Background
The family of this 95-nucleotide sequence from Cynara cardunculus is "mir-172 microRNA precursor family". The organism belongs to Cynara cardunculus subsp. cardunculus, within Eukaryota. Rfam links the family to the GO terms miRNA-mediated post-transcriptional gene silencing and RISC complex. The family has 11 seed sequences and 2,076 matches in Rfam 15.1.
[Rfam]
RNA sequence: UUGCUUACUGGUGCGGCAUCUUCAAGAUUCACAUUACUACCUAAUUGUUAAUUUUUGGGAAAUGAGAAUCUUGAUGAUGCUGCAUCAGAAAUCAA
Dot-bracket structure: .........(((((((((((.(((((((((.((((.........................)))).))))))))).))))))))))).........
Numbered sequence: 001u002u003g004c005u006u007a008c009u010g011g012u013g014c015g016g017c018a019u020c021u022u023c024a025a026g027a028u029u030c031a032c033a034u035u036a037c038u039a040c041c042u043a044a045u046u047g048u049u050a051a052u053u054u055u056u057g058g059g060a061a062a063u064g065a066g067a068a069u070c071u072u073g074a075u076g077a078u079g080c081u082g083c084a085u086c087a088g089a090a091a092u093c094a095a
Stems, first nucleotide, its partner, number of pairs: 010086011022074009032064004